[Rfam]
RNA sequence: UGUGAAUCUCAUGGAAACAUUUCUGCACAAACUAGAUUAUGGAUACCAAUGUCCCAAAAUGCUUUUGCUACAUUUUUA
Numbered sequence: 001u002g003u004g005a006a007u008c009u010c011a012u013g014g015a016a017a018c019a020u021u022u023c024u025g026c027a028c029a030a031a032c033u034a035g036a037u038u039a040u041g042g043a044u045a046c047c048a049a050u051g052u053c054c055c056a057a058a059a060u061g062c063u064u065u066u067g068c069u070a071c072a073u074u075u076u077u078a
Stems, first nucleotide, its partner, number of pairs: 001078002004075004009070001012067005018061005025054001027052003033048001
Shown here is a 78-nucleotide RNA from Muntiacus reevesi, a member of the family "mir-147 microRNA precursor family". The match comes from Rfam's covariance-model search (61 bits). A reference for the family is Kawaji et al. (2008), "Hidden layers of human small RNAs", BMC Genomics. Pairs were carried over by alignment from the consensus structure, which was predicted with RNAalifold.